This 99-nucleotide RNA belongs to the Rfam family "PhotoRC-II RNA".
It is annotated as a cis-regulatory element.
The family's consensus secondary structure is taken from published work.
Nucleotides: 099
Stems, first nucleotide, its partner, number of pairs: 013042005019037002027057005063086007
Number, partner (000 for none) and nucleotide at each position: 001000c002000c003000c004000u005000g006000u007000u008000g009000c010000a011000c012000a013042a014041c015040u016039g017038c018000u019037c020036u021000u022000a023000a024000a025000c026000c027057g028056a029055g030054a031053c032000c033000u034000a035000u036020a037019g038017g039016c040015a041014g042013u043000c044000u045000a046000a047000u048000a049000c050000c051000u052000c053031g054030u055029c056028u057027c058000u059000a060000a061000u062000a063086u064085c065084c066083a067082g068081a069080a070000g071000g072000g073000a074000a075000g076000g077000g078000a079000u080069u081068u082067c083066u084065g085064g086063a087000a088000a089000u090000a091000u092000a093000g094000u095000a096000u097000c098000a099000c